[Rfam]
RNA: DUF3800-VIII RNA
Organism: Blastomonas sp. AAP25
RNA sequence: AGAUGCCUGCCCCCCACUGAAGCCUUACGCUUUGCGUAGGAGAUCAUGUAGGUGGGGGCGGGCAUCA
Numbered sequence: 001a002g003a004u005g006c007c008u009g010c011c012c013c014c015c016a017c018u019g020a021a022g023c024c025u026u027a028c029g030c031u032u033u034g035c036g037u038a039g040g041a042g043a044u045c046a047u048g049u050a051g052g053u054g055g056g057g058g059c060g061g062g063c064a065u066c067a
Base pairs, nucleotide, nucleotide: 002066003065004064005063006062007061008060009059010058012057013056014055016053017052018051024040025039026038027037028036029035030034
Dot-bracket structure: .(((((((((.(((.(((.....(((((((...)))))))..........))).)))))))))))).